[Rfam]
Overview
The record is a 136-nucleotide sequence from Aquamicrobium lusatiense, which matches "Alphaproteobacterial sRNA ar35" in Rfam. By type it is a small RNA. The base pairs follow the family's consensus structure. A search with the family's covariance model found it, with a score of 66 bits. The literature on the family includes a 2012 paper in RNA Biol by del Val et al., "A survey of sRNA families in alpha-proteobacteria".
RNA sequence: AUCGCAGCGGCAAGAGCGCGGCUGAAAACCUGCAGGCUGCCUGAUGAAUGACGCCUCUGGUCUUUGACCACGGAUGUACUGGCACUGACCAUUGAGGCGGACAGGAGAAGGUCGGGAUUUCCCGGCCUUUUUCGUU
Number, nucleotide and partner (000 for none) at each position: 001a000002u000003c046004g045005c043006a042007g040008c039009g038010g000011c000012a000013a000014g000015a000016g000017c000018g033019c032020g031021g000022c000023u000024g000025a000026a000027a000028a000029c000030c000031u020032g019033c018034a000035g000036g000037c000038u009039g008040c007041c000042u006043g005044a000045u004046g003047a000048a000049u000050g000051a000052c099053g098054c097055c096056u095057c000058u000059g090060g089061u088062c087063u000064u000065u084066g083067a000068c082069c081070a080071c000072g000073g000074a000075u000076g000077u000078a000079c000080u070081g069082g068083c066084a065085c000086u000087g062088a061089c060090c059091a000092u000093u000094g000095a056096g055097g054098c053099g052100g000101a000102c000103a000104g133105g132106a131107g130108a129109a128110g127111g126112u125113c124114g123115g122116g000117a000118u000119u000120u000121c000122c115123c114124g113125g112126c111127c110128u109129u108130u107131u106132u105133c104134g000135u000136u000